[Rfam]
RNA sequence: UGUUCAGGCCUCCUCAUUGUGCAUGCUGUGUGUAUUAUUGUGAGUACCACACAGCGCCUGCAAUGUGGAGGCUGAGGCA
Numbered sequence: 001u002g003u004u005c006a007g008g009c010c011u012c013c014u015c016a017u018u019g020u021g022c023a024u025g026c027u028g029u030g031u032g033u034a035u036u037a038u039u040g041u042g043a044g045u046a047c048c049a050c051a052c053a054g055c056g057c058c059u060g061c062a063a064u065g066u067g068g069a070g071g072c073u074g075a076g077g078c079a
Base pairs, nucleotide, nucleotide: 012068013067015065016064017063018062019061020060021059024056026054027053028052029051030050031049